Source information:
The family of this 126-nucleotide RNA sequence from Sulfobacillus thermosulfidooxidans is "c-di-AMP riboswitch aptamer (ydaO/yuaA leader)". Gene Ontology terms of the family: regulation of gene expression and cyclic-di-AMP binding. The pairing is the family consensus, mapped onto this sequence.
RNA sequence: ACCUUGAUAACGCCGAAUUCGAUUAAGAAGCGGAGGACCCGUUCCUUUGGGGUGAAUUGCUAUGCAACGGGCAUGCUCGCAGCCCGAACCCGUCAGCUAACUUCGCAGGCGUAGGGGGCUCAAGGU
Numbered sequence: 001a002c003c004u005u006g007a008u009a010a011c012g013c014c015g016a017a018u019u020c021g022a023u024u025a026a027g028a029a030g031c032g033g034a035g036g037a038c039c040c041g042u043u044c045c046u047u048u049g050g051g052g053u054g055a056a057u058u059g060c061u062a063u064g065c066a067a068c069g070g071g072c073a074u075g076c077u078c079g080c081a082g083c084c085c086g087a088a089c090c091c092g093u094c095a096g097c098u099a100a101c102u103u104c105g106c107a108g109g110c111g112u113a114g115g116g117g118g119c120u121c122a123a124g125g126u
Base pairs, nucleotide, nucleotide: 011111012110013109014108018029019028020027030106031105032104033103034102035101040049041048050091051090052089058066059065060064069085070084071083072082
Dot-bracket structure: ..........((((...(((......)))((((((....((......))(((.....(((...)))..((((.........))))...))).........)))))).))))...............